[Rfam]
RNA sequence: AGACGAAUGGCAGGGCAAUUCUCCUUUGGCAGGUGCAUUAGCAAUAUGUUUUUGUUGCAUAUUUUUCUGCCAGAGGAGAAUUGCACUGUCAUUUUUCU
Dot-bracket structure: ....(((((.(((.(((((.((((..(((((((.(............................).)))))))..)))).))))).))).)))))....
RNA: mir-399 microRNA precursor family
Organism: Kingdonia uniflora